[Rfam]
RNA: mir-30 microRNA precursor family
Organism: Polypterus senegalus
RNA sequence: UUAGUUAAUGUAAACAUCCUACACUCAGCUAUAAUAUAGAAGUUAAAGCUGGGAGAAGGGUGUUUACUUUGACUGC
Numbered sequence: 001u002u003a004g005u006u007a008a009u010g011u012a013a014a015c016a017u018c019c020u021a022c023a024c025u026c027a028g029c030u031a032u033a034a035u036a037u038a039g040a041a042g043u044u045a046a047a048g049c050u051g052g053g054a055g056a057a058g059g060g061u062g063u064u065u066a067c068u069u070u071g072a073c074u075g076c
Base pairs, nucleotide, nucleotide: 002075003074004073005072006071008069010067011066012065013064014063015062016061017060018059019058020057022055024053025052026051027050028049029048030047